[Rfam]
RNA sequence: AACUGAAAUUGAACGUGCCGAUAUAUUGUCCGGUGACGUUUGUUAUAAGAAGCCAAA
Numbered sequence: 001a002a003c004u005g006a007a008a009u010u011g012a013a014c015g016u017g018c019c020g021a022u023a024u025a026u027u028g029u030c031c032g033g034u035g036a037c038g039u040u041u042g043u044u045a046u047a048a049g050a051a052g053c054c055a056a057a
Base pairs, nucleotide, nucleotide: 008044012040013039014038015037016036017034018033019032020031
RNA: Lacto-rpoB RNA
Organism: Levilactobacillus brevis